This 52-nucleotide RNA sequence from Alsobacter metallidurans belongs to the Rfam family "serC leader". This family is a putative regulatory RNA structure that is found upstream of the serC-serA operon in some alpha-proteobacteria. A search with the family's covariance model found it, with a score of 61 bits. The organism belongs to Alsobacter, within Bacteria. On this family, see Corbino et al., Genome Biol 2005: "Evidence for a second class of S-adenosylmethionine riboswitches and other regulatory RNA motifs in alpha-proteobacteria". The pairing is the family consensus, mapped onto this sequence.

[Rfam]
RNA sequence: CGGCGGGACACUCCGCCCCAACGCGGAGCGCCCAUCUGCAAGGAUGGAGCUA
Numbered sequence: 001c002g003g004c005g006g007g008a009c010a011c012u013c014c015g016c017c018c019c020a021a022c023g024c025g026g027a028g029c030g031c032c033c034a035u036c037u038g039c040a041a042g043g044a045u046g047g048a049g050c051u052a
Stems, first nucleotide, its partner, number of pairs: 011028006032047006
Dot-bracket structure: ..........((((((......))))))...((((((....)))))).....